[Rfam]
RNA sequence: AACAUUCCUCGUUAGCAGAGGCGUUUGCACAAACACAGGCUACUGCCCAAAAAUGUCGAAAGACGCCAAUGGGUAGACCAGGUAUUGUCGGCUUAAGGCUUUACCUAAGGUAGCUGGUCAAAACGACCUACGUUGUGCACUGCCGAAAGUCAACCAGAGAGGAAAGUA
Numbered sequence: 001a002a003c004a005u006u007c008c009u010c011g012u013u014a015g016c017a018g019a020g021g022c023g024u025u026u027g028c029a030c031a032a033a034c035a036c037a038g039g040c041u042a043c044u045g046c047c048c049a050a051a052a053a054u055g056u057c058g059a060a061a062g063a064c065g066c067c068a069a070u071g072g073g074u075a076g077a078c079c080a081g082g083u084a085u086u087g088u089c090g091g092c093u094u095a096a097g098g099c100u101u102u103a104c105c106u107a108a109g110g111u112a113g114c115u116g117g118u119c120a121a122a123a124c125g126a127c128c129u130a131c132g133u134u135g136u137g138c139a140c141u142g143c144c145g146a147a148a149g150u151c152a153a154c155c156a157g158a159g160a161g162g163a164a165a166g167u168a
Stems, first nucleotide, its partner, number of pairs: 005164006011154002013096001015150002020144003026139007039114005045074005054065004081105004087099003116128003